[Rfam]
RNA: Fungal signal recognition particle RNA
RNA sequence: ACCUGUAACGGGUCCUCAUCAGAAGGUGCACCGUCAUCCCCAUCCACCUUCCUAAUCUCUCACCCCGGCAGGAGCCCAGUUCGAGUCUCGUGGUGUCCUUUUAUUCACUCACUUGGGUAACCAGUGAUGCUGGAGGGACCUAAGCAAUGAAUGCAAUCUGACGAGGGAAGCAAUUCCGCAGUCUGGUAUUCACCAUGGGACGGCGGCGCUGGAAUACUCCAGUCGUGGGUUGUGAGGGUGCGUUGGCGGGCUGGUGUAUCGACUGAUAUU
Number, nucleotide and partner (000 for none) at each position: 001a013002c012003c011004u000005g000006u000007a000008a000009c000010g000011g003012g002013u001014c000015c000016u000017c000018a267019u266020c265021a264022g263023a000024a000025g000026g000027u258028g257029c256030a255031c254032c253033g252034u000035c000036a000037u250038c249039c248040c246041c245042a244043u000044c000045c000046a239047c238048c237049u236050u235051c234052c000053u000054a000055a000056u000057c000058u000059c000060u000061c000062a000063c229064c228065c227066c225067g224068g223069c222070a000071g220072g219073a218074g217075c000076c212077c211078a210079g209080u208081u206082c205083g204084a000085g201086u200087c199088u198089c197090g196091u195092g194093g193094u000095g139096u138097c137098c136099u135100u134101u133102u132103a131104u000105u000106c129107a128108c000109u127110c126111a125112c124113u123114u000115g122116g121117g000118u000119a000120a000121c116122c115123a113124g112125u111126g110127a109128u107129g106130c000131u103132g102133g101134a100135g099136g098137g097138a096139c095140c144141u000142a000143a000144g140145c000146a000147a000148u192149g191150a190151a189152u188153g187154c186155a000156a000157u000158c185159u000160g183161a182162c181163g000164a000165g000166g000167g176168a175169a174170g000171c000172a000173a000174u169175u168176c167177c000178g000179c000180a000181g162182u161183c160184u000185g158186g154187u153188a152189u151190u150191c149192a148193c093194c092195a091196u090197g089198g088199g087200a086201c085202g000203g000204c083205g082206g081207c000208g080209c079210u078211g077212g076213a000214a000215u000216a000217c074218u073219c072220c071221a000222g069223u068224c067225g066226u000227g065228g064229g063230u000231u000232g000233u000234g051235a050236g049237g048238g047239u046240g000241c000242g000243u000244u042245g041246g040247c000248g039249g038250g037251c000252u033253g032254g031255u030256g029257u028258a027259u000260c000261g000262a000263c022264u021265g020266a019267u018268a000269u000270u000